[Rfam]
RNA sequence: AUCUUAUCUAGAGAAGCCGAGGGACUGGCCCGUAGAAGCUUCAGCAACCAGCCAUGUAAAUGGUCAGGUGCUAAUUCCAGGAGAAUAGUCUGUUCUCAAAAGAUAAGAG
Number, nucleotide and partner (000 for none) at each position: 001a000002u108003c107004u106005u105006a104007u103008c102009u000010a000011g000012a000013g042014a041015a040016g039017c038018c000019g000020a000021g031022g030023g029024a000025c080026u079027g078028g077029c023030c022031c021032g000033u000034a000035g000036a000037a000038g017039c016040u015041u014042c013043a072044g071045c070046a069047a000048c068049c067050a064051g000052c062053c000054a000055u000056g000057u000058a000059a000060a000061u000062g052063g000064u050065c000066a000067g049068g048069u046070g045071c044072u043073a000074a000075u000076u101077c028078c027079a026080g025081g097082a096083g095084a094085a093086u092087a000088g000089u000090c000091u000092g086093u085094u084095c083096u082097c081098a000099a000100a000101a076102g008103a007104u006105a005106a004107g003108a002109g000